[Rfam]
RNA sequence: AUGGGAACAGCACGACCGCAAAUCUGACUCGCCGUGGGUUUCCAUGGCUCGGGAUUGCGGCCGUGU
Dot-bracket structure: .........((((..((((((..((.....(((((((....)))))))...)).))))))..))))
S15-Halobacteria ribosomal protein leader: a 66-nucleotide RNA. The base pairs follow the family's consensus structure, which is taken from published work. Its Rfam clan is "Ribosomal Protein S15 Leader clan". The literature on the family includes a 2020 paper in BMC Microbiol by Eckert and Weinberg, "Discovery of 20 novel ribosomal leader candidates in bacteria and archaea".